A member of the RNA family "Small nucleolar RNA SNORA40" from Sciurus carolinensis, 115 nucleotides long. Its family is annotated with RNA processing and nucleolus in the Gene Ontology. Rfam describes the family as follows. The snoRNA ACA 40 belongs to the H/ACA family of snoRNAs and guides the pseudouridylation of 28S rRNA subunit at position U4565. Rfam classes the family as an H/ACA-box small nucleolar RNA. The organism belongs to Sciurus, within Eukaryota.
[Rfam]
RNA sequence: AACACUUGUGUUUUUGUUUAAUUUAUGAACUUAUAGACAGGUGCAAAACAUAAAUCCGCUUUUGCAACCCAGAACUCAUUUAGUAUGAGUUUUGAUACAUAUAAGAAGGUAUAUA
Numbered sequence: 001a002a003c004a005c006u007u008g009u010g011u012u013u014u015u016g017u018u019u020a021a022u023u024u025a026u027g028a029a030c031u032u033a034u035a036g037a038c039a040g041g042u043g044c045a046a047a048a049c050a051u052a053a054a055u056c057c058g059c060u061u062u063u064g065c066a067a068c069c070c071a072g073a074a075c076u077c078a079u080u081u082a083g084u085a086u087g088a089g090u091u092u093u094g095a096u097a098c099a100u101a102u103a104a105g106a107a108g109g110u111a112u113a114u115a
Stems, first nucleotide, its partner, number of pairs: 003043007011035001016030002022027001054112002057109001060106005070094010